Rfam assigns this 118-nucleotide RNA sequence from Thermanaerothrix daxensis to the family "SAM riboswitch aptamer (S box leader)".

RNA sequence: CGCUCAUCCAGAGAGGUGGAGGGACCGGCCCGAUGAAGCCUCGGCAACCGCUGAGUAACCCAGCAGGUGCCAAUUCCGGCAGAGCCCGCGGGAAAGCGGCAACUCUGGAAGAUGAGAG
Numbered sequence: 001c002g003c004u005c006a007u008c009c010a011g012a013g014a015g016g017u018g019g020a021g022g023g024a025c026c027g028g029c030c031c032g033a034u035g036a037a038g039c040c041u042c043g044g045c046a047a048c049c050g051c052u053g054a055g056u057a058a059c060c061c062a063g064c065a066g067g068u069g070c071c072a073a074u075u076c077c078g079g080c081a082g083a084g085c086c087c088g089c090g091g092g093a094a095a096g097c098g099g100c101a102a103c104u105c106u107g108g109a110a111g112a113u114g115a116g117a118g
Base pairs, nucleotide, nucleotide: 001118003116004115005114006113007112008111013042014041015040016039017038021031022030023029025079026078027077028076043071044070045069046068048067049066050064051063052062053061075110080107081106082105083104084103

Description
The SAM riboswitch is found upstream of a number of genes which code for proteins involved in methionine or cysteine biosynthesis in Gram-positive bacteria.